[Rfam]
RNA sequence: GCGGGGUUCGUAUAGUGGUAAUACCUUAGCCUUCCAAGCUAAAGCGAGGAGUUCGAUUCUCCUACCCCGCU
Numbered sequence: 001g002c003g004g005g006g007u008u009c010g011u012a013u014a015g016u017g018g019u020a021a022u023a024c025c026u027u028a029g030c031c032u033u034c035c036a037a038g039c040u041a042a043a044g045c046g047a048g049g050a051g052u053u054c055g056a057u058u059c060u061c062c063u064a065c066c067c068c069g070c071u
Base pairs, nucleotide, nucleotide: 001070002069003068004067005066006065007064010024011023012022013021026042027041028040029039030038047063048062049061050060051059
tRNA: a 71-nucleotide RNA sequence from Rhodoferax antarcticus. The source organism's lineage runs through Bacteria, Pseudomonadati, Pseudomonadota, Betaproteobacteria and Rhodoferax antarcticus. It scores 60 bits against the family's covariance model. The base pairs follow the family's consensus structure, which is taken from published work. Gene Ontology term of the family: triplet codon-amino acid adaptor activity.